[Rfam]
RNA sequence: UAAUGAAUGUAGCAUGGUACUGUGCACGAAAACUGAACUAUGGAUCGACAUGUCUGCCAUCUCUGAUAUUCCUUGAUGAGACGGCCUGGUUUAGAUCCACAUUC
Number, nucleotide and partner (000 for none) at each position: 001u000002a000003a000004u000005g000006a000007a000008u000009g000010u000011a000012g025013c024014a023015u022016g000017g000018u000019a000020c000021u000022g015023u014024g013025c012026a000027c000028g000029a000030a000031a000032a000033c000034u000035g000036a000037a000038c000039u000040a000041u000042g087043g086044a000045u084046c083047g000048a000049c000050a000051u000052g077053u076054c075055u000056g071057c000058c000059a000060u000061c000062u000063c000064u000065g000066a000067u000068a000069u000070u000071c056072c000073u000074u000075g054076a053077u052078g000079a000080g000081a000082c000083g046084g045085c000086c043087u042088g000089g000090u000091u000092u000093a000094g000095a000096u000097c000098c000099a000100c000101a000102u000103u000104c000